[Rfam]
RNA sequence: UGAAGUUUUCAAUUCCGUAGUGCAUUGCAGUGUACUUAAUUAGCAACUGCAAGCUCAGCGGAUUUGGCAACUUUGAC
Numbered sequence: 001u002g003a004a005g006u007u008u009u010c011a012a013u014u015c016c017g018u019a020g021u022g023c024a025u026u027g028c029a030g031u032g033u034a035c036u037u038a039a040u041u042a043g044c045a046a047c048u049g050c051a052a053g054c055u056c057a058g059c060g061g062a063u064u065u066g067g068c069a070a071c072u073u074u075g076a077c
Base pairs, nucleotide, nucleotide: 006070007069009067010066011065014062015061016060017059018058022054023053025052026051027050028049029048
RNA: mir-932 microRNA precursor family
Organism: Drosophila gunungcola